[Rfam]
RNA sequence: UGGUCACUACCCAGGCUUUUAGAAUGAAGCUUCUAAUUUGCUGUGGACAUGACCAUAAAAAAAUUCCCCACUAGGGUUUCUGUCUGCUACCUCGUUAGCAAUCAACCUGUUGGGACCAUUA
Numbered sequence: 001u002g003g004u005c006a007c008u009a010c011c012c013a014g015g016c017u018u019u020u021a022g023a024a025u026g027a028a029g030c031u032u033c034u035a036a037u038u039u040g041c042u043g044u045g046g047a048c049a050u051g052a053c054c055a056u057a058a059a060a061a062a063a064u065u066c067c068c069c070a071c072u073a074g075g076g077u078u079u080c081u082g083u084c085u086g087c088u089a090c091c092u093c094g095u096u097a098g099c100a101a102u103c104a105a106c107c108u109g110u111u112g113g114g115a116c117c118a119u120u121a
Stems, first nucleotide, its partner, number of pairs: 003053004010046002026041001028039002067114004074107002077104001085100003